[Rfam]
RNA sequence: GUAGAUGCUCAUUCCAUCUCUUAUGCUCGCCAUAUGGCUUCAUAAACCCAGGAAUGACGCAGAGCCGUUUACGGUGCUUAUCGUCCACUGACAGAUGUCGCUUUAGCCUCAUCAGACACCAUGGACAUAACGUUGAGUGAAGCACCCAUUAUGUUGUCGAAUUAAACCUGUUUAACGCCUGCUCCUCAUACGAGCAGGCGUUUUUUU
Numbered sequence: 001g002u003a004g005a006u007g008c009u010c011a012u013u014c015c016a017u018c019u020c021u022u023a024u025g026c027u028c029g030c031c032a033u034a035u036g037g038c039u040u041c042a043u044a045a046a047c048c049c050a051g052g053a054a055u056g057a058c059g060c061a062g063a064g065c066c067g068u069u070u071a072c073g074g075u076g077c078u079u080a081u082c083g084u085c086c087a088c089u090g091a092c093a094g095a096u097g098u099c100g101c102u103u104u105a106g107c108c109u110c111a112u113c114a115g116a117c118a119c120c121a122u123g124g125a126c127a128u129a130a131c132g133u134u135g136a137g138u139g140a141a142g143c144a145c146c147c148a149u150u151a152u153g154u155u156g157u158c159g160a161a162u163u164a165a166a167c168c169u170g171u172u173u174a175a176c177g178c179c180u181g182c183u184c185c186u187c188a189u190a191c192g193a194g195c196a197g198g199c200g201u202u203u204u205u206u207u
Stems, first nucleotide, its partner, number of pairs: 001065002006061003009057004015052001017051001019044001027037001029035001073146007083126005094113004156167002174202011

Rfam assigns this 207-nucleotide RNA sequence from Kluyvera cryocrescens to the family "GlmZ RNA activator of glmS mRNA".
Its Rfam clan is "Glm clan".
For this family Rfam cites "Novel small RNA-encoding genes in the intergenic regions of Escherichia coli" (Argaman et al., Curr Biol, 2001).
This RNA was discovered in E. coli during a large scale screen. The sraJ gene was expressed in early logarithmic phase, but its level decreased with cell growth.
Taxonomically the source falls in Kluyvera (Bacteria, Pseudomonadati, Pseudomonadota, Enterobacterales).
The match comes from Rfam's covariance-model search (200 bits).